[Rfam]
The family of this 80-nucleotide RNA sequence from Oscillibacter valericigenes is "pemK RNA".

Nucleotides: 080
Stems, first nucleotide, its partner, number of pairs: 012077001013044006045063002049059003064076003
Number, partner (000 for none) and nucleotide at each position: 001000a002000c003000a004000a005000u006000g007000a008000u009000a010000c011000u012077u013044c014043u015042g016041c017040a018039c019000a020000g021000c022000c023000a024000c025000a026000g027000a028000c029000a030000u031000c032000g033000c034000a035000a036000u037000g038000g039018g040017u041016g042015c043014a044013g045063c046062c047000a048000c049059c050058g051057g052000a053000g054000a055000a056000c057051c058050c059049g060000g061000c062046g063045g064076g065075g066074g067000u068000g069000a070000g071000a072000g073000u074066c075065c076064c077012a078000u079000g080000a